RNA sequence: GAACGUUGCAAGAUUCCCGAUAGGAUUUAAAAAGUUUCUUUUUAAAGAUUCCUUGUAACCGAAAAAUAUAAAAGGGGGAAUGGAAAUG
Numbered sequence: 001g002a003a004c005g006u007u008g009c010a011a012g013a014u015u016c017c018c019g020a021u022a023g024g025a026u027u028u029a030a031a032a033a034g035u036u037u038c039u040u041u042u043u044a045a046a047g048a049u050u051c052c053u054u055g056u057a058a059c060c061g062a063a064a065a066a067u068a069u070a071a072a073a074g075g076g077g078g079a080a081u082g083g084a085a086a087u088g
Stems, first nucleotide, its partner, number of pairs: 014080005022053003026046007059075002
RNA: SAM-III riboswitch aptamer (SMK box)
Organism: Vagococcus elongatus